[Rfam]
RNA sequence: UUGAUCCUGCUGUGUACGCGUAAUGCCGAUAUGUUUUGAUCCAACACUUUAACAUUGGGAGUUUUAUCUCUGUUUAUGGCGUGUAGGCCCAAUUGAGGGAAACCCAGGAAUAAACAGGCGGACACCCACCUGCUCAGGCAGGUUCAAAACAGCGGCAGUGCGGCAUGGUGGGCCGGGU
Numbered sequence: 001u002u003g004a005u006c007c008u009g010c011u012g013u014g015u016a017c018g019c020g021u022a023a024u025g026c027c028g029a030u031a032u033g034u035u036u037u038g039a040u041c042c043a044a045c046a047c048u049u050u051a052a053c054a055u056u057g058g059g060a061g062u063u064u065u066a067u068c069u070c071u072g073u074u075u076a077u078g079g080c081g082u083g084u085a086g087g088c089c090c091a092a093u094u095g096a097g098g099g100a101a102a103c104c105c106a107g108g109a110a111u112a113a114a115c116a117g118g119c120g121g122a123c124a125c126c127c128a129c130c131u132g133c134u135c136a137g138g139c140a141g142g143u144u145c146a147a148a149a150c151a152g153c154g155g156c157a158g159u160g161c162g163g164c165a166u167g168g169u170g171g172g173c174c175g176g177g178u
Stems, first nucleotide, its partner, number of pairs: 002176001006172010017162003032151004037146003041142002057127003061123004068117001071116007083103002088099003
Dot-bracket structure: .(...((((((((((.(((............((((.(((.((..............(((.((((...(..(((((((.....((...(((......)))..))......))))))))..)))).))).............)).))).))))........)))))))))))))...)..
RNA: 6S / SsrS RNA
Organism: Dendrosporobacter quercicolus